This 103-nucleotide RNA from Bacillus sp. 165 belongs to the Rfam family "Purine riboswitch aptamer". A search with the family's covariance model found it, with a score of 79 bits. Rfam's curators write: Riboswitches are metabolite binding domains within certain messenger RNAs that serve as precision sensors for their corresponding targets. Allosteric rearrangement of mRNA structure is mediated by ligand binding, and this results in modulation of gene expression. A class of riboswitches that selectively recognises guanine and becomes saturated at concentrations as low as 5 nM. In Bacillus subtilis, this mRNA motif is located on at least five separate transcriptional units that together encode 17 genes that are mostly involved in purine transport and purine nucleotide biosynthesis. It has also been shown that some members of this family are specific for adenine instead. The source organism's lineage runs through Bacteria, Bacillota, Bacilli, Bacillaceae and Bacillus. Pairs were carried over by alignment from the consensus structure, which is taken from published work. Rfam 15.1 lists 4,097 matches to the family in 1,411 species.
[Rfam]
RNA sequence: AGUGCAAAUAGAAGUUUCCUUCAUAUAUACUCAACAAUAGGGGUUGAGAGUUUCUACCGGGUUACCGUAACAUAACCUGACUAUGAAGGCAGUGUAUCCUACU
Dot-bracket structure: .................((((((((....((((((.......)))))).........(((((((........)))))))..))))))))..............